The record is a 68-nucleotide RNA from Jaculus jaculus, which matches "Selenocysteine insertion sequence 1" in Rfam.
The family's RNA type in Rfam is cis-regulatory element.
A search with the family's covariance model found it, with a score of 41 bits.
The organism belongs to Jaculus, within Eukaryota.
Rfam describes the family as follows. The incorporation of selenocysteine into a protein sequence is directed by an in-frame UGA codon (usually a stop codon) within the coding region of the mRNA. Selenoprotein mRNAs contain a conserved secondary structure in the 3' UTR that is required for the distinction of UGA stop from UGA selenocysteine.
RNA sequence: GCUGCUUCAUGACAGGAAAGAUCGAAAUGUCUACCAGACCCAUGGUCUUUCCUUGAUGUUCCUGUGGC
Numbered sequence: 001g002c003u004g005c006u007u008c009a010u011g012a013c014a015g016g017a018a019a020g021a022u023c024g025a026a027a028u029g030u031c032u033a034c035c036a037g038a039c040c041c042a043u044g045g046u047c048u049u050u051c052c053u054u055g056a057u058g059u060u061c062c063u064g065u066g067g068c
Stems, first nucleotide, its partner, number of pairs: 001068005014053010029039003